Rfam assigns this 82-nucleotide RNA sequence from Hermetia illucens to the family "drz-agam-1 ribozyme".
Taxonomically the source falls in Hermetia (Eukaryota, Dicondylia, Aparaglossata, Brachycera).
On this family, see Webb et al., Science 2009: "Widespread occurrence of self-cleaving ribozymes".
[Rfam]
Nucleotides: 082
Stems, first nucleotide, its partner, number of pairs: 015082003019078001021076002024036003047068004052064005
Number, partner (000 for none) and nucleotide at each position: 001000c002000g003000c004000u005000a006000c007000u008000a009000c010000c011000a012000a013000a014000c015082c016081c017080u018000a019078u020000c021076u022075c023000c024036a025035c026034c027000u028000c029000c030000a031000c032000g033000u034026g035025g036024u037000g038000a039000c040000c041000g042000c043000g044000g045000g046000g047068a048067g049066c050065u051000c052064u053063u054062u055061c056060g057000u058000a059000a060056c061055g062054a063053a064052a065050a066049g067048c068047u069000g070000c071000a072000g073000a074000u075022g076021g077000a078019g079000a080017a081016g082015g